[Rfam]
RNA sequence: AGGUGAGUAAGUCCUUCUGAAAGAAUGAGGCCCGUGGAUACGGGGUGGGAUGAGUAAGAAAGGGUUCACCU
Numbered sequence: 001a002g003g004u005g006a007g008u009a010a011g012u013c014c015u016u017c018u019g020a021a022a023g024a025a026u027g028a029g030g031c032c033c034g035u036g037g038a039u040a041c042g043g044g045g046u047g048g049g050a051u052g053a054g055u056a057a058g059a060a061a062g063g064g065u066u067c068a069c070c071u
Stems, first nucleotide, its partner, number of pairs: 001071006012064004016059003031044005